[Rfam]
The family of this 60-nucleotide sequence from Hymenobacter sp. is "Nitrogen stress-induced RNA 1". The organism belongs to Hymenobacter, within Bacteria. A reference for the family is Ionescu et al. (2010), "Heterocyst-specific transcription of NsiR1, a non-coding RNA encoded in a tandem array of direct repeats in cyanobacteria", J Mol Biol. Rfam classes the family as a small RNA. The base pairs follow the family's consensus structure.
RNA sequence: GGGUAGGUGCACCCCGUACGAAAAAGCCCUGUCAGCUACUACUGACAGGGCUUUUUCUUU
Number, nucleotide and partner (000 for none) at each position: 001g000002g013003g012004u011005a000006g000007g000008u000009g000010c000011a004012c003013c002014c000015c000016g000017u000018a000019c000020g000021a000022a000023a000024a000025a052026g051027c050028c049029c048030u047031g046032u045033c044034a043035g042036c000037u000038a000039c000040u000041a000042c035043u034044g033045a032046c031047a030048g029049g028050g027051c026052u025053u000054u000055u000056u000057c000058u000059u000060u000